[Rfam]
RNA sequence: CUGCAGCUAAUAAGUCCAUCGGAUGCCUUUAUUCAUUGGUCUCUGUGUGCAAGGUUGCAAACAGUAGUCUCCUUUAGUGUGCGCAGCCUGUUGCCGUAUGGUUGCCCUAAGGGACCUUGGAGACAGCC
Numbered sequence: 001c002u003g004c005a006g007c008u009a010a011u012a013a014g015u016c017c018a019u020c021g022g023a024u025g026c027c028u029u030u031a032u033u034c035a036u037u038g039g040u041c042u043c044u045g046u047g048u049g050c051a052a053g054g055u056u057g058c059a060a061a062c063a064g065u066a067g068u069c070u071c072c073u074u075u076a077g078u079g080u081g082c083g084c085a086g087c088c089u090g091u092u093g094c095c096g097u098a099u100g101g102u103u104g105c106c107c108u109a110a111g112g113g114a115c116c117u118u119g120g121a122g123a124c125a126g127c128c
Stems, first nucleotide, its partner, number of pairs: 002051004020045003025040003075114001084104005
Rfam assigns this 128-nucleotide RNA sequence from Ictidomys tridecemlineatus to the family "Small nucleolar RNA SNORA70". Rfam describes the family as follows. snoRNA U70 seems to be exclusive to mammals and is a member of the H/ACA class of snoRNA which contain H (ANANNA) and ACA box motifs. H/ACA box snoRNAs are involved in the conversion of uridines to pseudouridines (5-ribosyluracil) a constituent of structural RNAs (transfer, ribosomal, small nuclear, and small nucleolar). The organism belongs to Ictidomys, within Eukaryota.